TUC338: a 165-nucleotide sequence from Myotis myotis. It is annotated as a cis-regulatory element. A search with the family's covariance model found it, with a score of 130 bits. Pairs were carried over by alignment from the consensus structure, which was predicted with WAR.

RNA sequence: UUGAAGGCGUGGAGACUGAGUUCUCUAUAUCCACAGAACAGGUGUGGCACAGGCAGCGGCAGUGCAGCUUUCCCGCUGUCCCACCAGUGUGCCUCAUUCCUGGGCUAGGUGGCCAUGCUGCAGGUGAGGGCUGUUCAGUCUCCAUGCCCUCGAUCUUUGGCUACU
Numbered sequence: 001u002u003g004a005a006g007g008c009g010u011g012g013a014g015a016c017u018g019a020g021u022u023c024u025c026u027a028u029a030u031c032c033a034c035a036g037a038a039c040a041g042g043u044g045u046g047g048c049a050c051a052g053g054c055a056g057c058g059g060c061a062g063u064g065c066a067g068c069u070u071u072c073c074c075g076c077u078g079u080c081c082c083a084c085c086a087g088u089g090u091g092c093c094u095c096a097u098u099c100c101u102g103g104g105c106u107a108g109g110u111g112g113c114c115a116u117g118c119u120g121c122a123g124g125u126g127a128g129g130g131c132u133g134u135u136c137a138g139u140c141u142c143c144a145u146g147c148c149c150u151c152g153a154u155c156u157u158u159g160g161c162u163a164c165u
Base pairs, nucleotide, nucleotide: 002152003151004150006148007147010144011143012142013141014140015139016138017137018136019135020134023130024129026128028126029125030124031123034102035101036100038098044094047092048091049090050089051088058080059079060078061077062076106120107119108118